[Rfam]
RNA sequence: ACGACCUUACUUGAACAGGAUCUGUUCUAUAGGCUCGUACAACUGUAUCCUUGAGUUCUAAGGAGACAGGAACCGCAGUCUGGUUGAUGAAUCAUGACCGUGUGAUCAGAGCGUGAUUAAUGGUCCAGAUCGAGUCCUCCUUGGAGGUUUCCAUCUGUGGCAGUGGAGGAUCGUUCUCACCGUAUCAACUGCGGUGGGGUGGUCACACGGUUGUCUGACAGACC
Numbered sequence: 001a002c003g004a005c006c007u008u009a010c011u012u013g014a015a016c017a018g019g020a021u022c023u024g025u026u027c028u029a030u031a032g033g034c035u036c037g038u039a040c041a042a043c044u045g046u047a048u049c050c051u052u053g054a055g056u057u058c059u060a061a062g063g064a065g066a067c068a069g070g071a072a073c074c075g076c077a078g079u080c081u082g083g084u085u086g087a088u089g090a091a092u093c094a095u096g097a098c099c100g101u102g103u104g105a106u107c108a109g110a111g112c113g114u115g116a117u118u119a120a121u122g123g124u125c126c127a128g129a130u131c132g133a134g135u136c137c138u139c140c141u142u143g144g145a146g147g148u149u150u151c152c153a154u155c156u157g158u159g160g161c162a163g164u165g166g167a168g169g170a171u172c173g174u175u176c177u178c179a180c181c182g183u184a185u186c187a188a189c190u191g192c193g194g195u196g197g198g199g200u201g202g203u204c205a206c207a208c209g210g211u212u213g214u215c216u217g218a219c220a221g222a223c224c
Stems, first nucleotide, its partner, number of pairs: 001038002003035001005033003013027006043069004048064006078223005097211012110175004123161003126157005132151003136147004177197008